The record is a 95-nucleotide RNA from Actinoplanes sp. N902-109, which matches "ZMP/ZTP riboswitch aptamer (pfl RNA motif)" in Rfam. The family has 185 seed sequences and 3,295 matches in Rfam 15.1. The match comes from Rfam's covariance-model search (52 bits).
RNA sequence: CCGGAGGGCCGUGACUGGCGCGUUCGGAUGGGUCACCAUCGGGGAGCGGUCCCACCCAUCAGACGGGUGAAUUGCCGUGCGCCUGGGCCUCUUCA
Numbered sequence: 001c002c003g004g005a006g007g008g009c010c011g012u013g014a015c016u017g018g019c020g021c022g023u024u025c026g027g028a029u030g031g032g033u034c035a036c037c038a039u040c041g042g043g044g045a046g047c048g049g050u051c052c053c054a055c056c057c058a059u060c061a062g063a064c065g066g067g068u069g070a071a072u073u074g075c076c077g078u079g080c081g082c083c084u085g086g087g088c089c090u091c092u093u094c095a
Stems, first nucleotide, its partner, number of pairs: 003055001006052007015043002017083005028039004074088003